[Rfam]
Record summary: The family of this 89-nucleotide RNA sequence from Medicago truncatula is "MIR2617 microRNA precursor family". Rfam links the family to the GO terms RISC complex and miRNA-mediated post-transcriptional gene silencing. Pairs were carried over by alignment from the consensus structure, which was predicted with RNAalifold. A search with the family's covariance model found it, with a score of 50 bits. The source organism's lineage runs through Eukaryota, Viridiplantae, Pentapetalae, Fabaceae and Medicago.

RNA sequence: AUGUAGUGUCACAUGCCCGUUUGGGUUUUACUCUGAUUGCUGAGAUAUUAUUAUUUAGUUGAUUUUGGGAAACAGGGUGUUACAAUUGG
Numbered sequence: 001a002u003g004u005a006g007u008g009u010c011a012c013a014u015g016c017c018c019g020u021u022u023g024g025g026u027u028u029u030a031c032u033c034u035g036a037u038u039g040c041u042g043a044g045a046u047a048u049u050a051u052u053a054u055u056u057a058g059u060u061g062a063u064u065u066u067g068g069g070a071a072a073c074a075g076g077g078u079g080u081u082a083c084a085a086u087u088g089g
Stems, first nucleotide, its partner, number of pairs: 002089001005086001007084003011080004016076002019073003